The record is a 71-nucleotide RNA sequence from Ophiophagus hannah, which matches "mir-204 microRNA precursor family" in Rfam. The sequence is in the family's curated seed alignment. The source organism's lineage runs through Eukaryota, Vertebrata, Euteleostomi, Toxicofera and Ophiophagus.
[Rfam]
RNA sequence: UAGCUUUCCCUUUGUCAUCCUAUGCCUGGGAAAUUCAGGGAGGCUGGGACGGUGAAGGGAAGCCCACAGCG
Numbered sequence: 001u002a003g004c005u006u007u008c009c010c011u012u013u014g015u016c017a018u019c020c021u022a023u024g025c026c027u028g029g030g031a032a033a034u035u036c037a038g039g040g041a042g043g044c045u046g047g048g049a050c051g052g053u054g055a056a057g058g059g060a061a062g063c064c065c066a067c068a069g070c071g
Base pairs, nucleotide, nucleotide: 007060008059009058010057011056012055014053015052018049019048020047021046022045024044025043026042027041